The family of this 90-nucleotide sequence from Jaculus jaculus is "mir-3473 microRNA precursor family".
Lineage of the source: Eukaryota > Tetrapoda > Myomorpha > Dipodoidea > Jaculus.
The match comes from Rfam's covariance-model search (73 bits).
Rfam links the family to the GO terms miRNA-mediated post-transcriptional gene silencing, RISC complex and cellular response to mechanical stimulus.
[Rfam]
RNA sequence: ACCGCUAAGCCAUCUCUCCAGCCCAAAUUGAAGUUUUUUCUAUUAAAAAAUUCUAUAUCAAAAUCAGGGCUGGAGAGAUGGCUUAGUGGC
Numbered sequence: 001a002c003c004g005c006u007a008a009g010c011c012a013u014c015u016c017u018c019c020a021g022c023c024c025a026a027a028u029u030g031a032a033g034u035u036u037u038u039u040c041u042a043u044u045a046a047a048a049a050a051u052u053c054u055a056u057a058u059c060a061a062a063a064u065c066a067g068g069g070c071u072g073g074a075g076a077g078a079u080g081g082c083u084u085a086g087u088g089g090c
Stems, first nucleotide, its partner, number of pairs: 002089023